[Rfam]
Notes
c-di-GMP-I riboswitch aptamer: a 97-nucleotide RNA from Paenibacillus rigui. The organism belongs to Paenibacillus, within Bacteria. A search with the family's covariance model found it, with a score of 59 bits.
RNA sequence: AAUGAUCCAUGGCAAACUCGUACGAAAGUCGGGGACGCAAAGCCACGGGCCUACAUGCAGGGGAACACAUCCUGCACAAGGCAGCCGGGCCGCUCAU
Numbered sequence: 001a002a003u004g005a006u007c008c009a010u011g012g013c014a015a016a017c018u019c020g021u022a023c024g025a026a027a028g029u030c031g032g033g034g035a036c037g038c039a040a041a042g043c044c045a046c047g048g049g050c051c052u053a054c055a056u057g058c059a060g061g062g063g064a065a066c067a068c069a070u071c072c073u074g075c076a077c078a079a080g081g082c083a084g085c086c087g088g089g090c091c092g093c094u095c096a097u
Base pairs, nucleotide, nucleotide: 012038013037017033018032019031020030022029023028042090043089044088046087047086048085049082050081051080056076057075058074059073060072061071062070